This 208-nucleotide sequence from Oryza sativa belongs to the Rfam family "MIR812 microRNA precursor family".
The sequence is in the family's curated seed alignment.
The family's consensus secondary structure was predicted with RNAalifold.
[Rfam]
RNA sequence: AAUAAGUGCAGUUUUGCACUAUUCAUACUUAACAUUUGAACGUUCGUCUUAUUUGAAAAUUUUUUAUGAUUAGUAUUUUUAUUGCUAUUAGAUGUUAAAACAUAAAUAGUACUUUAUGUGUGACUAAAUAUUUUCAAUUUUUUCACAAAAUUUUCAAAUAAGACGGACAGUCAAACGUUGGGUACGAAUAUCUACGGCUGCACUUAUU
Numbered sequence: 001a002a003u004a005a006g007u008g009c010a011g012u013u014u015u016g017c018a019c020u021a022u023u024c025a026u027a028c029u030u031a032a033c034a035u036u037u038g039a040a041c042g043u044u045c046g047u048c049u050u051a052u053u054u055g056a057a058a059a060u061u062u063u064u065u066a067u068g069a070u071u072a073g074u075a076u077u078u079u080u081a082u083u084g085c086u087a088u089u090a091g092a093u094g095u096u097a098a099a100a101c102a103u104a105a106a107u108a109g110u111a112c113u114u115u116a117u118g119u120g121u122g123a124c125u126a127a128a129u130a131u132u133u134u135c136a137a138u139u140u141u142u143u144c145a146c147a148a149a150a151u152u153u154u155c156a157a158a159u160a161a162g163a164c165g166g167a168c169a170g171u172c173a174a175a176c177g178u179u180g181g182g183u184a185c186g187a188a189u190a191u192c193u194a195c196g197g198c199u200g201c202a203c204u205u206a207u208u
Stems, first nucleotide, its partner, number of pairs: 028182006035175005042168011